This 170-nucleotide RNA sequence from Faecalicatena orotica belongs to the Rfam family "M-box riboswitch aptamer (ykoK leader)". Rfam describes the family as follows. M-box riboswitch, also know as ykoK leader is described as a metaloregulatory RNA that sense divalent metals and function as a genetic control element of genes related to divalent metal transport in bacteria. Rfam 15.1 lists 1,095 matches to the family in 932 species.
RNA sequence: GAAUCAUUUCGGUAGGUGAGGCUACCACAGGGAUUGGGAUUUUCCUUAAGAUUGCUGCCGCGAGAUUGUGGAGACACAACAAGCUGGUUAGCAGGCUAUGUCGUGAAGGCAUAACCUAAUGCAAUUGAUAUGCCCUGUGAUGCUAAAGCUUGAACGGUGAGUAAUUUUUU
Numbered sequence: 001g002a003a004u005c006a007u008u009u010c011g012g013u014a015g016g017u018g019a020g021g022c023u024a025c026c027a028c029a030g031g032g033a034u035u036g037g038g039a040u041u042u043u044c045c046u047u048a049a050g051a052u053u054g055c056u057g058c059c060g061c062g063a064g065a066u067u068g069u070g071g072a073g074a075c076a077c078a079a080c081a082a083g084c085u086g087g088u089u090a091g092c093a094g095g096c097u098a099u100g101u102c103g104u105g106a107a108g109g110c111a112u113a114a115c116c117u118a119a120u121g122c123a124a125u126u127g128a129u130a131u132g133c134c135c136u137g138u139g140a141u142g143c144u145a146a147a148g149c150u151u152g153a154a155c156g157g158u159g160a161g162u163a164a165u166u167u168u169u170u
Stems, first nucleotide, its partner, number of pairs: 006165003010161001011155001013107001015150003020144003026139007051125005058086001060084002067078004094116002097113001100110003